The family of this 93-nucleotide sequence from Phocoena sinus is "Small nucleolar RNA SNORD116". It is annotated as a C/D-box small nucleolar RNA. Lineage of the source: Eukaryota > Craniata > Whippomorpha > Cetacea > Phocoena. The base pairs follow the family's consensus structure, which was predicted with PFOLD.

RNA sequence: GGAUCGCCGAUGACUCCCAAAAAAUGUAUUCCUUAGAUAUCUGAAAAAAAUGAAUGAGAAAUCACUACCAUCUUCUCAUUGGAACUGAGGUCC
Numbered sequence: 001g002g003a004u005c006g007c008c009g010a011u012g013a014c015u016c017c018c019a020a021a022a023a024a025u026g027u028a029u030u031c032c033u034u035a036g037a038u039a040u041c042u043g044a045a046a047a048a049a050a051u052g053a054a055u056g057a058g059a060a061a062u063c064a065c066u067a068c069c070a071u072c073u074u075c076u077c078a079u080u081g082g083a084a085c086u087g088a089g090g091u092c093c
Stems, first nucleotide, its partner, number of pairs: 001093005027056005033048002